[Rfam]
RNA sequence: UUCUCGCGAACGCCGAAUCGACCCUAGUGAGGGUCGACCGGGGGAACCACACCCCCAUCGGGGCGAAUCUCGCCGCUGGAUGCAGCGAGACGCGUACUGCGCGAGCCCGUCAGCUAACUCCGGAGGCGAACUACCCCACCAUG
Number, nucleotide and partner (000 for none) at each position: 001u000002u000003c000004u000005c000006g000007c000008g000009a000010a000011c128012g127013c126014c125015g000016a000017a000018u037019c036020g035021a034022c033023c032024c031025u030026a000027g000028u000029g000030a025031g024032g023033g022034u021035c020036g019037a018038c123039c122040g121041g120042g119043g118044g000045a000046a000047c000048c060049a000050c000051a000052c000053c000054c000055c000056c000057a000058u000059c000060g048061g108062g107063g106064c000065g000066a000067a000068u000069c089070u088071c087072g086073c000074c000075g000076c000077u000078g000079g000080a000081u000082g000083c000084a000085g000086c072087g071088a070089g069090a000091c000092g102093c101094g100095u099096a000097c000098u000099g095100c094101g093102c092103g000104a000105g000106c063107c062108c061109g000110u000111c000112a000113g000114c000115u000116a000117a000118c043119u042120c041121c040122g039123g038124a000125g014126g013127c012128g011129a000130a000131c000132u000133a000134c000135c000136c000137c000138a000139c000140c000141a000142u000143g000